[Rfam]
Overview:
The record is a 78-nucleotide RNA sequence from Dictyobacter alpinus, which matches "Fluoride riboswitch aptamer (crcB RNA motif)" in Rfam. It scores 38 bits against the family's covariance model. The source organism's lineage runs through Bacteria, Bacillati, Chloroflexota, Dictyobacteraceae and Dictyobacter. The base pairs follow the family's consensus structure, which is taken from published work.
RNA sequence: AAUAGCUUUGGCGAUGGAGCUCGCCAGGUCAUAGAUCUUGUGGCCGAACCGCACGCUGCUGAUAGCUCCUGACAACCC
Numbered sequence: 001a002a003u004a005g006c007u008u009u010g011g012c013g014a015u016g017g018a019g020c021u022c023g024c025c026a027g028g029u030c031a032u033a034g035a036u037c038u039u040g041u042g043g044c045c046g047a048a049c050c051g052c053a054c055g056c057u058g059c060u061g062a063u064a065g066c067u068c069c070u071g072a073c074a075a076c077c078c
Base pairs, nucleotide, nucleotide: 010025011024012023013022016069017068018067019066020065021064051059052058